[Rfam]
RNA sequence: UGUGCAAGUGACGAUGAACAGACAGGGACAUCAGCACUCCGGUAUUGGAGUAUGAUGAGUUGUCUUUGGGAAUCUCUCUGAUGCACA
Numbered sequence: 001u002g003u004g005c006a007a008g009u010g011a012c013g014a015u016g017a018a019c020a021g022a023c024a025g026g027g028a029c030a031u032c033a034g035c036a037c038u039c040c041g042g043u044a045u046u047g048g049a050g051u052a053u054g055a056u057g058a059g060u061u062g063u064c065u066u067u068g069g070g071a072a073u074c075u076c077u078c079u080g081a082u083g084c085a086c087a
Stems, first nucleotide, its partner, number of pairs: 002086005

The record is an 87-nucleotide RNA from Rhododendron simsii, which matches "Small nucleolar RNA R44/J54/Z268 family" in Rfam.
Its Rfam clan is "SNORD74 clan".
It is annotated as a C/D-box small nucleolar RNA.